[Rfam]
RNA sequence: GCUGGCAAAUGAUGUAAAAUCAAAAAAUCACUUAUACUACACACUGAAUUAACUGUAGACAUAAUCUCCGCUUAUUAUCUGAUGCCUUC
Numbered sequence: 001g002c003u004g005g006c007a008a009a010u011g012a013u014g015u016a017a018a019a020u021c022a023a024a025a026a027a028u029c030a031c032u033u034a035u036a037c038u039a040c041a042c043a044c045u046g047a048a049u050u051a052a053c054u055g056u057a058g059a060c061a062u063a064a065u066c067u068c069c070g071c072u073u074a075u076u077a078u079c080u081g082a083u084g085c086c087u088u089c
Stems, first nucleotide, its partner, number of pairs: 004086004

This 89-nucleotide RNA sequence from Ziziphus jujuba belongs to the Rfam family "Small nucleolar RNA R16". It scores 65 bits against the family's covariance model. The family has 18 seed sequences and 884 matches in Rfam 15.1. The base pairs follow the family's consensus structure, which was predicted with PFOLD. Gene Ontology terms of the family: nucleolus and RNA processing.